Annotation
Shown here is a 64-nucleotide RNA from Cladocopium goreaui, a member of the family "mir-2 microRNA precursor family". The source organism's lineage runs through Eukaryota, Sar, Alveolata, Dinophyceae and Cladocopium. The literature on the family includes a 2001 paper in Science by Lee and Ambros, "An extensive class of small RNAs in Caenorhabditis elegans".
RNA sequence: UGCAUCAUCAAAUUGUUGGUGAUAUAUAUAUAUAUACAUAUCACCAACAAUUUGAUGAUACAUA
Number, nucleotide and partner (000 for none) at each position: 001u000002g000003c000004a000005u058006c057007a056008u055009c054010a053011a052012a051013u050014u049015g048016u047017u046018g045019g044020u043021g042022a041023u000024a000025u040026a039027u038028a000029u000030a000031u000032a000033u000034a000035u000036a000037c000038a027039u026040a025041u022042c021043a020044c019045c018046a017047a016048c015049a014050a013051u012052u011053u010054g009055a008056u007057g006058a005059u000060a000061c000062a000063u000064a000